[Rfam]
The family of this 70-nucleotide sequence from Microcaecilia unicolor is "Small nucleolar RNA SNORD123". For this family Rfam cites "snoSeeker: an advanced computational package for screening of guide and orphan snoRNA genes in the human genome" (Yang et al., Nucleic Acids Res, 2006).

RNA sequence: GGUGAAAAUGAUGAAUUCUGGGGAACUGAUAUACAUGACCUGAAAAAGGCCAUCCAUUUCCUGAUUCACC
Numbered sequence: 001g002g003u004g005a006a007a008a009u010g011a012u013g014a015a016u017u018c019u020g021g022g023g024a025a026c027u028g029a030u031a032u033a034c035a036u037g038a039c040c041u042g043a044a045a046a047a048g049g050c051c052a053u054c055c056a057u058u059u060c061c062u063g064a065u066u067c068a069c070c
Base pairs, nucleotide, nucleotide: 001070002069003068004067005066006065
Dot-bracket structure: ((((((..........................................................))))))

Taxonomically the source falls in Microcaecilia (Eukaryota, Chordata, Teleostomi, Euteleostomi).